This 222-nucleotide RNA from Sphingobium subterraneum belongs to the Rfam family "permuted transfer-messenger RNA". The source organism's lineage runs through Bacteria, Pseudomonadota, Alphaproteobacteria, Sphingobiaceae and Sphingobium. The match comes from Rfam's covariance-model search (132 bits).

[Rfam]
RNA sequence: GGUGAUAAACGGUGGCGUGAAAUAGACGCAGCGGACCCGGGGGCGGUACCCGGCGGCUCCACCACAGGCAGCGAUACAGAAAUGUGCCGAUGUCCGUGACGGGGCCGAACUAGGAUCGACGUGUGUUCAAAGACGACAUUUUUGCCCGGGCUGAGUAACCCGUUCAAGGCUCAAAACCCAAUAAGUGCCAACGAUAACGAAGCACUUGCUCUUGCAGCGUAA
Numbered sequence: 001g002g003u004g005a006u007a008a009a010c011g012g013u014g015g016c017g018u019g020a021a022a023u024a025g026a027c028g029c030a031g032c033g034g035a036c037c038c039g040g041g042g043g044c045g046g047u048a049c050c051c052g053g054c055g056g057c058u059c060c061a062c063c064a065c066a067g068g069c070a071g072c073g074a075u076a077c078a079g080a081a082a083u084g085u086g087c088c089g090a091u092g093u094c095c096g097u098g099a100c101g102g103g104g105c106c107g108a109a110c111u112a113g114g115a116u117c118g119a120c121g122u123g124u125g126u127u128c129a130a131a132g133a134c135g136a137c138a139u140u141u142u143u144g145c146c147c148g149g150g151c152u153g154a155g156u157a158a159c160c161c162g163u164u165c166a167a168g169g170c171u172c173a174a175a176a177c178c179c180a181a182u183a184a185g186u187g188c189c190a191a192c193g194a195u196a197a198c199g200a201a202g203c204a205c206u207u208g209c210u211c212u213u214g215c216a217g218c219g220u221a222a
Base pairs, nucleotide, nucleotide: 001146002145003144004143005142016135017134018133027125028124029123031122032121033120037053038052039051040050041049054107055106056105057104058103059102060101147162148161149160150159
The base pairs follow the family's consensus structure, which is taken from published work. Bacterial tmRNA, also known as 10Sa RNA or SsrA, is named for its dual tRNA and mRNA-like properties.